[Rfam]
RNA sequence: AAUCACAUGGUAUAAUAAUUCUUGUAAGCAAGUUGAUGGUGGUAGCUGAACUUCUACUAAGGAAGGUGAUGCCUAUGAAAUUUUUGGCAGUAACUUCCGAAAGGAGAGUAAGUAUGUCAGAUUAUGAGUUGGCAGUAAUUAUGUUAAUGUCAAUUCAACUUCUGAUUGACGUUUUUAA
Numbered sequence: 001a002a003u004c005a006c007a008u009g010g011u012a013u014a015a016u017a018a019u020u021c022u023u024g025u026a027a028g029c030a031a032g033u034u035g036a037u038g039g040u041g042g043u044a045g046c047u048g049a050a051c052u053u054c055u056a057c058u059a060a061g062g063a064a065g066g067u068g069a070u071g072c073c074u075a076u077g078a079a080a081u082u083u084u085u086g087g088c089a090g091u092a093a094c095u096u097c098c099g100a101a102a103g104g105a106g107a108g109u110a111a112g113u114a115u116g117u118c119a120g121a122u123u124a125u126g127a128g129u130u131g132g133c134a135g136u137a138a139u140u141a142u143g144u145u146a147a148u149g150u151c152a153a154u155u156c157a158a159c160u161u162c163u164g165a166u167u168g169a170c171g172u173u174u175u176u177a178a
Stems, first nucleotide, its partner, number of pairs: 043152001045150002062097004067092002071088002116133003120129001122127001157173003161168001
RNA: Listeria sRNA rli28